[Rfam]
Rfam assigns this 292-nucleotide RNA sequence from Cohnella xylanilytica to the family "glmS glucosamine-6-phosphate activated ribozyme aptamer". This entry contains a glucosamine-6-phosphate activated ribozyme that is found in the mRNA for GlmS. GlmS is an enzyme that uses fructose-6-phosphate and glutamine to generate glucosamine-6-phosphate. A search with the family's covariance model found it, with a score of 57 bits. For this family Rfam cites "Backbone and nucleobase contacts to glucosamine-6-phosphate in the glmS ribozyme" (Jansen et al., Nat Struct Mol Biol, 2006). Pairs were carried over by alignment from the consensus structure, which is taken from published work.

RNA sequence: UAAGCACGGAUAGCGCCAGAACUUGUCGGUCUUCGCGGGAAGAAGCCGGAUGGGACAACAGGAGAAUCGAACCGGGACGGAACGAGGGUUCGGUGGCAGCCUGCCCGUUCGGAUUCGGCUGUACGGCCAUGGCUGCGGUCAAGGCCUGCGGUUGCGCGGAGAAGGCGGCAAGUUGACGAGGUGGAGGCGUUCGGAACGUUCGGCGGGGACCUCCCGGCCCGCAUCGGGGCCGACAACCGGAAGACAAAUCGCUCAGGGCAACCGGGCGGACAAUAUUCCGGUACGAUGCAGA
Numbered sequence: 001u002a003a004g005c006a007c008g009g010a011u012a013g014c015g016c017c018a019g020a021a022c023u024u025g026u027c028g029g030u031c032u033u034c035g036c037g038g039g040a041a042g043a044a045g046c047c048g049g050a051u052g053g054g055a056c057a058a059c060a061g062g063a064g065a066a067u068c069g070a071a072c073c074g075g076g077a078c079g080g081a082a083c084g085a086g087g088g089u090u091c092g093g094u095g096g097c098a099g100c101c102u103g104c105c106c107g108u109u110c111g112g113a114u115u116c117g118g119c120u121g122u123a124c125g126g127c128c129a130u131g132g133c134u135g136c137g138g139u140c141a142a143g144g145c146c147u148g149c150g151g152u153u154g155c156g157c158g159g160a161g162a163a164g165g166c167g168g169c170a171a172g173u174u175g176a177c178g179a180g181g182u183g184g185a186g187g188c189g190u191u192c193g194g195a196a197c198g199u200u201c202g203g204c205g206g207g208g209a210c211c212u213c214c215c216g217g218c219c220c221g222c223a224u225c226g227g228g229g230c231c232g233a234c235a236a237c238c239g240g241a242a243g244a245c246a247a248a249u250c251g252c253u254c255a256g257g258g259c260a261a262c263c264g265g266g267c268g269g270a271c272a273a274u275a276u277u278c279c280g281g282u283a284c285g286a287u288g289c290a291g292a
Stems, first nucleotide, its partner, number of pairs: 020174008183214005191203004215232006236282007250268005256263002